RNA: T-box leader
RNA sequence: UUAAAUGCGUCUAAAUUAGUAACUGUGACUUGUGUUUCAGAAAGGCUGCGGAUGAUGCGAGCAGCCACACCCCCACAGUGAACUCAUUAGAUAGGCAGUACAACUGAACGCAGUAGGUUGGACCGUGGGGUGCGUUAAACCCAAGAGUGCGUCAAUAAUUUGACGAACAAUAGGUGGCACCGCGGUAACAAUCGCCCUAUGG
Numbered sequence: 001u002u003a004a005a006u007g008c009g010u011c012u013a014a015a016u017u018a019g020u021a022a023c024u025g026u027g028a029c030u031u032g033u034g035u036u037u038c039a040g041a042a043a044g045g046c047u048g049c050g051g052a053u054g055a056u057g058c059g060a061g062c063a064g065c066c067a068c069a070c071c072c073c074c075a076c077a078g079u080g081a082a083c084u085c086a087u088u089a090g091a092u093a094g095g096c097a098g099u100a101c102a103a104c105u106g107a108a109c110g111c112a113g114u115a116g117g118u119u120g121g122a123c124c125g126u127g128g129g130g131u132g133c134g135u136u137a138a139a140c141c142c143a144a145g146a147g148u149g150c151g152u153c154a155a156u157a158a159u160u161u162g163a164c165g166a167a168c169a170a171u172a173g174g175u176g177g178c179a180c181c182g183c184g185g186u187a188a189c190a191a192u193c194g195c196c197c198u199a200u201g202g
Base pairs, nucleotide, nucleotide: 007096008095011090012089013088014087022079023078024077025076026075027074033069034068035067044066045065046064047063048062049061099122101120102119103118104117105116124134125133126132150165151164152163153162154161155160171199172198173197174196182195183194184193185192186191